RNA sequence: AAAACACUGCGAGUUUGCCUUUCGGCAAACGUCGUGUAUUAUAUGCCGUUUCUUACUUUGUUGCGAAACGGCAGAAAUUCAUCAAUGCUCGAAAAUUGAUAUUUUCUGCGCUUGCUGAUUUUAUAA
Number, nucleotide and partner (000 for none) at each position: 001a000002a000003a000004a000005c000006a000007c000008u000009g000010c000011g033012a032013g030014u029015u028016u027017g026018c025019c024020u000021u000022u000023c000024g019025g018026c017027a016028a015029a014030c013031g000032u012033c011034g000035u000036g000037u000038a000039u000040u000041a000042u000043a000044u000045g072046c071047c070048g069049u068050u067051u066052c065053u000054u000055a000056c000057u000058u000059u000060g000061u000062u000063g000064c000065g052066a051067a050068a049069c048070g047071g046072c045073a000074g000075a000076a000077a120078u000079u118080c117081a116082u000083c114084a113085a112086u000087g111088c110089u000090c000091g106092a105093a104094a103095a102096u101097u000098g000099a000100u000101a096102u095103u094104u093105u092106c091107u000108g000109c000110g088111c087112u085113u084114g083115c000116u081117g080118a079119u000120u077121u000122u000123a000124u000125a000126a000
Shown here is a 126-nucleotide RNA from Treponema pedis, a member of the family "TD-1 RNA". The match comes from Rfam's covariance-model search (85 bits). A reference for the family is Weinberg et al. (2007), "Identification of 22 candidate structured RNAs in bacteria using the CMfinder comparative genomics pipeline", Nucleic Acids Res. The family is grouped with related families in Rfam's "TD (Treponema denticola) motifs".